[Rfam]
RNA sequence: GGCGGAAUAGCUCAGAUGGCUAGAGCAUUCGGUUCAUACCCGAAGUGUCGUAGGUUCGAUUCCUAUUUCCGCUA
Numbered sequence: 001g002g003c004g005g006a007a008u009a010g011c012u013c014a015g016a017u018g019g020c021u022a023g024a025g026c027a028u029u030c031g032g033u034u035c036a037u038a039c040c041c042g043a044a045g046u047g048u049c050g051u052a053g054g055u056u057c058g059a060u061u062c063c064u065a066u067u068u069c070c071g072c073u074a
Base pairs, nucleotide, nucleotide: 001073002072003071004070005069006068007067010026011025012024013023028044029043030042031041032040050066051065052064053063054062
Description
The family of this 74-nucleotide sequence from Clostridium tyrobutyricum is "tRNA". Rfam classes the family as a transfer RNA. Rfam describes the family as follows. Transfer RNA (tRNA) molecules are approximately 80 nucleotides in length.